S4-Clostridia ribosomal protein leader: a 58-nucleotide RNA from Ruminococcus gauvreauii. A reference for the family is Eckert and Weinberg (2020), "Discovery of 20 novel ribosomal leader candidates in bacteria and archaea", BMC Microbiol.
RNA sequence: GAAAGGUCAUGCGUUUAGCGGCAUGGCUGGAUGCUUGCAUACCGGCAUCCCAGUUAGG
Numbered sequence: 001g002a003a004a005g006g007u008c009a010u011g012c013g014u015u016u017a018g019c020g021g022c023a024u025g026g027c028u029g030g031a032u033g034c035u036u037g038c039a040u041a042c043c044g045g046c047a048u049c050c051c052a053g054u055u056a057g058g
Base pairs, nucleotide, nucleotide: 005028006027007026008025009024010023011022012021029050030049031048032047033046034045035044